[Rfam]
RNA sequence: GGAGGUUGACUUAGAGCCUCCGGCACGUGCGUGUUAAUAGUGUCAGCUUUUGGCCGAGCUGUACGGUUAGUGAAUC
Number, nucleotide and partner (000 for none) at each position: 001g021002g020003a019004g018005g017006u016007u000008g000009a000010c000011u000012u000013a000014g000015a000016g006017c005018c004019u003020c002021c001022g000023g000024c000025a000026c000027g000028u000029g000030c000031g000032u000033g000034u070035u069036a068037a067038u066039a000040g064041u063042g062043u000044c061045a060046g059047c058048u057049u056050u000051u000052g000053g000054c000055c000056g049057a048058g047059c046060u045061g044062u042063a041064c040065g000066g038067u037068u036069a035070g034071u000072g000073a000074a000075u000076c000
The record is a 76-nucleotide RNA sequence from Prevotella dentasini, which matches "L13-Bacteroidia ribosomal protein leader" in Rfam.
It is one of the family's seed sequences.
Lineage of the source: Bacteria > Bacteroidota > Bacteroidales > Prevotella > Prevotella dentasini.
A reference for the family is Eckert and Weinberg (2020), "Discovery of 20 novel ribosomal leader candidates in bacteria and archaea", BMC Microbiol.
By type it is a cis-regulatory leader.